[Rfam]
RNA sequence: AAAGCAGAGAUAGUGUGUAUCGACGUUGUGCGAAUCUGAUUCAAAUGCACUCUGAUCGAAAGUGUUCUCUGCAAAAUUGAAAUCACAGGGGAAAGAUGGGCAGUUGUCUCUCAAUUUCCAAUUGAUUCGUCAACAAUCAUCUUCCCUACACCU
Numbered sequence: 001a002a003a004g005c006a007g008a009g010a011u012a013g014u015g016u017g018u019a020u021c022g023a024c025g026u027u028g029u030g031c032g033a034a035u036c037u038g039a040u041u042c043a044a045a046u047g048c049a050c051u052c053u054g055a056u057c058g059a060a061a062g063u064g065u066u067c068u069c070u071g072c073a074a075a076a077u078u079g080a081a082a083u084c085a086c087a088g089g090g091g092a093a094a095g096a097u098g099g100g101c102a103g104u105u106g107u108c109u110c111u112c113a114a115u116u117u118c119c120a121a122u123u124g125a126u127u128c129g130u131c132a133a134c135a136a137u138c139a140u141c142u143u144c145c146c147u148a149c150a151c152c153u
Stems, first nucleotide, its partner, number of pairs: 004072007015050006089147003093143007103134004
Rfam assigns this 153-nucleotide sequence from Salvia splendens to the family "small nucleolar RNA snoR135". Taxonomically the source falls in core Calosphace (Eukaryota, Spermatophyta, eudicotyledons, Mentheae). It is annotated as an H/ACA-box small nucleolar RNA. A reference for the family is Chen and Wu (2009), "Mining small RNA sequencing data: a new approach to identify small nucleolar RNAs in Arabidopsis", Nucleic Acids Res. The family has 6 seed sequences and 837 matches in Rfam 15.1. Its family is annotated with RNA processing and nucleolus in the Gene Ontology.